Shown here is a 75-nucleotide RNA sequence from Methanospirillum hungatei, a member of the family "S15-Methanomicrobia ribosomal protein leader". Taxonomically the source falls in Methanospirillum hungatei (Archaea, Methanobacteriota, Methanomicrobia, Methanospirillaceae).
RNA sequence: CGCACUUUUUAUAGUGCUGGCAGACGCAAGUCCGACGUGAUUUUCAUCACUGCCCGUUCUGGGCUUUGGGAUUGC
Numbered sequence: 001c002g003c004a005c006u007u008u009u010u011a012u013a014g015u016g017c018u019g020g021c022a023g024a025c026g027c028a029a030g031u032c033c034g035a036c037g038u039g040a041u042u043u044u045c046a047u048c049a050c051u052g053c054c055c056g057u058u059c060u061g062g063g064c065u066u067u068g069g070g071a072u073u074g075c
Base pairs, nucleotide, nucleotide: 002017003016004015005014006013026075027074028073029072032070033069037050038049039048040047041046052064053063054062055061
Dot-bracket structure: .(((((......)))))........((((..((...(((((....))))).((((.....))))....)).))))